[Rfam]
RNA: Group II catalytic intron D1-D4-2
RNA sequence: GAGGGCAGGCCCCUCGAUGUCGUCUUUCAGGAGAAGGCAUCAAACCACUUCAAGCUGCUGUGGUAAAGAGCCAUGGUGGUGAGCGUUGAAGAAAAGGCGCAGUGAAUGCGUCAGGU
Numbered sequence: 001g002a003g004g005g006c007a008g009g010c011c012c013c014u015c016g017a018u019g020u021c022g023u024c025u026u027u028c029a030g031g032a033g034a035a036g037g038c039a040u041c042a043a044a045c046c047a048c049u050u051c052a053a054g055c056u057g058c059u060g061u062g063g064u065a066a067a068g069a070g071c072c073a074u075g076g077u078g079g080u081g082a083g084c085g086u087u088g089a090a091g092a093a094a095a096g097g098c099g100c101a102g103u104g105a106a107u108g109c110g111u112c113a114g115g116u
Stems, first nucleotide, its partner, number of pairs: 001015005016041006023034004046115001048091006054080002057077003061073004096112006